The record is a 210-nucleotide RNA sequence from Clostridium acetireducens, which matches "raiA RNA" in Rfam. The family's consensus secondary structure is taken from published work. A search with the family's covariance model found it, with a score of 198 bits. Rfam classes the family as a riboswitch.
RNA sequence: UUAAGUUAGGUUUGUGGUUGAAAGUCGAUGCCAGUCGCAGGCAAAACGAUCCACGUAAGUUAAAUAAAAUUAUUUAAUGAGCAUAGUGCGGUUUAGAAGUAAGUCCUGCCGCUUAUAAAAGCGAGAGAAUUAUUAGUGAGAAGAUGAACUCUGGGUAGCAAACGUUCCAGCAGGCCAGUGUGGGGGAAAAGACCAGGUCAACUAACUUAA
Numbered sequence: 001u002u003a004a005g006u007u008a009g010g011u012u013u014g015u016g017g018u019u020g021a022a023a024g025u026c027g028a029u030g031c032c033a034g035u036c037g038c039a040g041g042c043a044a045a046a047c048g049a050u051c052c053a054c055g056u057a058a059g060u061u062a063a064a065u066a067a068a069a070u071u072a073u074u075u076a077a078u079g080a081g082c083a084u085a086g087u088g089c090g091g092u093u094u095a096g097a098a099g100u101a102a103g104u105c106c107u108g109c110c111g112c113u114u115a116u117a118a119a120a121g122c123g124a125g126a127g128a129a130u131u132a133u134u135a136g137u138g139a140g141a142a143g144a145u146g147a148a149c150u151c152u153g154g155g156u157a158g159c160a161a162a163c164g165u166u167c168c169a170g171c172a173g174g175c176c177a178g179u180g181u182g183g184g185g186g187a188a189a190a191g192a193c194c195a196g197g198u199c200a201a202c203u204a205a206c207u208u209a210a
Base pairs, nucleotide, nucleotide: 001210002209003208004207005206006205007204008203009202012201013200014199015195016194017193018192019191028181029180030179031041033093034092035091036090037089038088039087050086058078060076062074063073084188105174106173107172108171109170110123111122112121113120114119127167128166129165130164136159137158142152143151144150
Dot-bracket structure: (((((((((..((((((((........((([.(((((((.]........(.......(.(.((.........)).).).....[.))))))))...........((((((((((....)))))...((((.....((....(((.....))).....))....))))..)))))....)))......]..)))))...))))))))))))